RNA sequence: ACUGGAGGACGACCUCCCCCACGCAGGGAAUCGCAUUCGGGACGGCCCGG
Numbered sequence: 001a002c003u004g005g006a007g008g009a010c011g012a013c014c015u016c017c018c019c020c021a022c023g024c025a026g027g028g029a030a031u032c033g034c035a036u037u038c039g040g041g042a043c044g045g046c047c048c049g050g
Stems, first nucleotide, its partner, number of pairs: 004017005037050005